RNA: Selenocysteine transfer RNA
Organism: Perkinsela sp. CCAP 1560/4
RNA sequence: GCCACGAUGAACCCUGCUGGGGUGGGGUGCAGGCUUCAAACCUGUAGGCAAGGGUACUUGCAGCCGUUCGAUUCGGCCCUCGUGGU
Numbered sequence: 001g002c003c004a005c006g007a008u009g010a011a012c013c014c015u016g017c018u019g020g021g022g023u024g025g026g027g028u029g030c031a032g033g034c035u036u037c038a039a040a041c042c043u044g045u046a047g048g049c050a051a052g053g054g055u056a057c058u059u060g061c062a063g064c065c066g067u068u069c070g071a072u073u074c075g076g077c078c079c080u081c082g083u084g085g086u
Base pairs, nucleotide, nucleotide: 001086002085003084004083005082006081007080009078012027013026014025015024016023017022028046029045030044031043032042033041048061049060050059051058052057063077064076065075066074